Rfam assigns this 57-nucleotide RNA from Panagrellus redivivus to the family "mir-7883 microRNA precursor family".
The family has 2 seed sequences and 7 matches in Rfam 15.1.
The match comes from Rfam's covariance-model search (53 bits).

RNA sequence: AUUUGAGUUCACGGUGUACCUUGAAUUACCGUUACAAGGUGCAUCGUGGACUCAAAU
Numbered sequence: 001a002u003u004u005g006a007g008u009u010c011a012c013g014g015u016g017u018a019c020c021u022u023g024a025a026u027u028a029c030c031g032u033u034a035c036a037a038g039g040u041g042c043a044u045c046g047u048g049g050a051c052u053c054a055a056a057u
Base pairs, nucleotide, nucleotide: 001057002056003055004054005053006052007051008050010048011047012046013045015043016042017041018040019039020038021037022036023035